[Rfam]
RNA sequence: GGUUCGUAGUUGAAUUGUGGGCCUUUGAGGCGCAAUGGUUUGUCCCGUCCACCUCGGAUUGGUGACCCAUGCCCUUGAGGUCCGUGAACAAUCAGAAACAAAAAACACGGGAGCGGUUCCUUCCUGAUUUUCGCAUGUCAUGCAUGCCAGGGGGCGUCCGUGAUUUUUACUGUGACUAAAAAAGUGUGACCAAAGCAGUCAUUCGACUUGAAUUAGAAAGCAUGGGAUAACAAAGGAGCAGCCUAUGGGCCACCGUUUCGGCUUUUGUUGGUUUUAAAAGUCCAUUGGAGAUUAUGGCGUCGUGCGACAAGCGUCUGGGUGUUUUCCCAUCUUUGGGGCACCCGUCGCCUUUGCGAGAAAUCCGUGUCGGUGUUGAUGAGCUUCGGCCCAUCUCUCCGGCGCCUUCUCGUGACUCACGGCAUCCAGGAAUGAAGGAGGGUAGUUCGGGGGAGAACGUACUGGCGCGUCAGAGGUGAAAUUCUUAGACCGCGCCAAGACGAACUACAGCGAAGGCAUUCUUCAAGGAUACCUUCCUCAAUCAAGAACCAAAGUGUGGGGAUCGAAGAUGAUUAGAGACCAUUGUAGUCCACACUGCAAACG
Numbered sequence: 001g002g003u004u005c006g007u008a009g010u011u012g013a014a015u016u017g018u019g020g021g022c023c024u025u026u027g028a029g030g031c032g033c034a035a036u037g038g039u040u041u042g043u044c045c046c047g048u049c050c051a052c053c054u055c056g057g058a059u060u061g062g063u064g065a066c067c068c069a070u071g072c073c074c075u076u077g078a079g080g081u082c083c084g085u086g087a088a089c090a091a092u093c094a095g096a097a098a099c100a101a102a103a104a105a106c107a108c109g110g111g112a113g114c115g116g117u118u119c120c121u122u123c124c125u126g127a128u129u130u131u132c133g134c135a136u137g138u139c140a141u142g143c144a145u146g147c148c149a150g151g152g153g154g155c156g157u158c159c160g161u162g163a164u165u166u167u168u169a170c171u172g173u174g175a176c177u178a179a180a181a182a183a184g185u186g187u188g189a190c191c192a193a194a195g196c197a198g199u200c201a202u203u204c205g206a207c208u209u210g211a212a213u214u215a216g217a218a219a220g221c222a223u224g225g226g227a228u229a230a231c232a233a234a235g236g237a238g239c240a241g242c243c244u245a246u247g248g249g250c251c252a253c254c255g256u257u258u259c260g261g262c263u264u265u266u267g268u269u270g271g272u273u274u275u276a277a278a279a280g281u282c283c284a285u286u287g288g289a290g291a292u293u294a295u296g297g298c299g300u301c302g303u304g305c306g307a308c309a310a311g312c313g314u315c316u317g318g319g320u321g322u323u324u325u326c327c328c329a330u331c332u333u334u335g336g337g338g339c340a341c342c343c344g345u346c347g348c349c350u351u352u353g354c355g356a357g358a359a360a361u362c363c364g365u366g367u368c369g370g371u372g373u374u375g376a377u378g379a380g381c382u383u384c385g386g387c388c389c390a391u392c393u394c395u396c397c398g399g400c401g402c403c404u405u406c407u408c409g410u411g412a413c414u415c416a417c418g419g420c421a422u423c424c425a426g427g428a429a430u431g432a433a434g435g436a437g438g439g440u441a442g443u444u445c446g447g448g449g450g451a452g453a454a455c456g457u458a459c460u461g462g463c464g465c466g467u468c469a470g471a472g473g474u475g476a477a478a479u480u481c482u483u484a485g486a487c488c489g490c491g492c493c494a495a496g497a498c499g500a501a502c503u504a505c506a507g508c509g510a511a512g513g514c515a516u517u518c519u520u521c522a523a524g525g526a527u528a529c530c531u532u533c534c535u536c537a538a539u540c541a542a543g544a545a546c547c548a549a550a551g552u553g554u555g556g557g558g559a560u561c562g563a564a565g566a567u568g569a570u571u572a573g574a575g576a577c578c579a580u581u582g583u584a585g586u587c588c589a590c591a592c593u594g595c596a597a598a599c600g
Base pairs, nucleotide, nucleotide: 002546003545004544005543009539010538011537437533438532439531442527443526444525445524449521450520451519452518453517454516455499456498460494461493462492463491464490465489466488470481471480472479507514508513551592552591553590554589555588556587561585565581566580567579568578
RNA: Eukaryotic small subunit ribosomal RNA, nucleotides 677 to 1276
Organism: Trypanosoma theileri